Description:
A member of the RNA family "mir-1000 microRNA precursor family" from Culex quinquefasciatus, 71 nucleotides long. The family's consensus secondary structure was predicted with RNAalifold. Rfam's curators put it in the seed alignment.

[Rfam]
RNA sequence: AACGAUUAUAUUGUCCUGUCACAGCAGUACUUUUCCUUAGCUUACUGUUGUUUCGGGACAUUUACAUUGAU
Numbered sequence: 001a002a003c004g005a006u007u008a009u010a011u012u013g014u015c016c017u018g019u020c021a022c023a024g025c026a027g028u029a030c031u032u033u034u035c036c037u038u039a040g041c042u043u044a045c046u047g048u049u050g051u052u053u054c055g056g057g058a059c060a061u062u063u064a065c066a067u068u069g070a071u
Base pairs, nucleotide, nucleotide: 003069004068005067006066012060013059014058015057016056017055018054022050023049024048025047026046027045028044029043